[Rfam]
RNA sequence: UGGCGCCCAAUAUGGGGCUUGGAUACUGAGGCAGCAGUGAGAAAGACAGGAAUGCGUUUGACAAAUUUUGAGACACAUCGGAGCCGCCCCGUGGGAACCUGCCUCAGCUGAAACCGAAAGUAAGUGGAAAUGUCAGAUCAUGGGGCAAGAAUUGAGUCAACAUGAGCUUUAUGUUAAGCAGUUAAAAGAGGCUUUAAAGACAUGGGGAGUAAAGGUUAAAACUACAGAUUUAUUUAAUUUCUUUGAUUUUGUAAAGGACACUUGUCCCU
Dot-bracket structure: .....((.....((.........))....)).....((.......))...........................((.((.....((....(.((.......)).)...)).....))..)).........(.((.(....).))).......((((((...............................))).)))......(((((((...(((((.........))))).......)))))))........(.((((....)))).)